[Rfam]
RNA sequence: AUUUAAGUUUUCCAGGGUUCCGCAGUUUACAGCUGGCAGGUCCGAGCGAAAACGCAAAGUUGGACUGUGGACAAGGAAGGAUAAAAGCCUGGGAGUU
Numbered sequence: 001a002u003u004u005a006a007g008u009u010u011u012c013c014a015g016g017g018u019u020c021c022g023c024a025g026u027u028u029a030c031a032g033c034u035g036g037c038a039g040g041u042c043c044g045a046g047c048g049a050a051a052a053c054g055c056a057a058a059g060u061u062g063g064a065c066u067g068u069g070g071a072c073a074a075g076g077a078a079g080g081a082u083a084a085a086a087g088c089c090u091g092g093g094a095g096u097u
Stems, first nucleotide, its partner, number of pairs: 007053006015043002020040002022037001023035005055069002058066003072092001078090003
A member of the RNA family "Guanidine-I riboswitch aptamer" from Acetonema longum, 97 nucleotides long.